Rfam assigns this 121-nucleotide sequence from Anaeromicropila herbilytica to the family "FMN riboswitch aptamer (RFN element)". Pairs were carried over by alignment from the consensus structure, which is taken from published work. Rfam describes the family as follows. The RFN element is a highly conserved domain that is found frequently in the 5'-untranslated regions of prokaryotic mRNAs that encode for flavin mononucleotide (FMN) biosynthesis and transport proteins. This element is a metabolite-dependent riboswitch that directly binds FMN in the absence of proteins. In Bacillus subtilis, the riboswitch most likely controls gene expression by causing premature transcription termination within the 5' untranslated region of the ribDEAHT operon and precluding access to the ribosome-binding site of ypaA mRNA.The FMN riboswitch structure, reported in present an FMN-bound six-stem junction, adopts a butterfly-like scaffold, stapled together by opposingly directed but nearly identically folded peripheral domains. It scores 107 bits against the family's covariance model.
RNA sequence: GAAGUUCUUCGGGGCAGGGUGAAAUUCCCGACCGACGGUUAUAGUCCGUGACCUGCUAAGGCAGCUGAAUUGGUGAAAUUCCAAUACCGACAGUAUAUAGUCUGGAUGAGAGAAGAUAAGC
Dot-bracket structure: .....(((((......(((.......))).[[((((((.....[[))))...((........))....(((((.......)))))]])).(((......]]))).......))))).....
Numbered sequence: 001g002a003a004g005u006u007c008u009u010c011g012g013g014g015c016a017g018g019g020u021g022a023a024a025u026u027c028c029c030g031a032c033c034g035a036c037g038g039u040u041a042u043a044g045u046c047c048g049u050g051a052c053c054u055g056c057u058a059a060g061g062c063a064g065c066u067g068a069a070u071u072g073g074u075g076a077a078a079u080u081c082c083a084a085u086a087c088c089g090a091c092a093g094u095a096u097a098u099a100g101u102c103u104g105g106a107u108g109a110g111a112g113a114a115g116a117u118a119a120g121c
Stems, first nucleotide, its partner, number of pairs: 006116005017029003031101002033089002035049004044087002053064002069085005091104003